Overview: A member of the RNA family "U4 spliceosomal RNA" from Strigamia maritima, 137 nucleotides long. NCBI's taxonomy places the organism under Eukaryota, Ecdysozoa, Arthropoda, Linotaeniidae, Strigamia. Clan: U4 clan.
RNA sequence: AGCUUUGCGCAGAGGCAAUACCAUAACCAAUGAAGUUCUACUGAGGUGUGGUUAUUGCUAGUUGAAAACUUUACCCAAUAUCCUGCCAAUACGACCUCACGGUCGGAUUAGGCAAUUUUUGUAGGUCUCUAAGGAGA
Numbered sequence: 001a002g003c004u005u006u007g008c009g010c011a012g013a014g015g016c017a018a019u020a021c022c023a024u025a026a027c028c029a030a031u032g033a034a035g036u037u038c039u040a041c042u043g044a045g046g047u048g049u050g051g052u053u054a055u056u057g058c059u060a061g062u063u064g065a066a067a068a069c070u071u072u073a074c075c076c077a078a079u080a081u082c083c084u085g086c087c088a089a090u091a092c093g094a095c096c097u098c099a100c101g102g103u104c105g106g107a108u109u110a111g112g113c114a115a116u117u118u119u120u121g122u123a124g125g126u127c128u129c130u131a132a133g134g135a136g137a
Stems, first nucleotide, its partner, number of pairs: 020052005026047003034042003085113003088109003092105005126137004
Dot-bracket structure: ...................(((((.(((.....(((...)))..))))))))................................((((((.(((((....))))).))).)))............((((....))))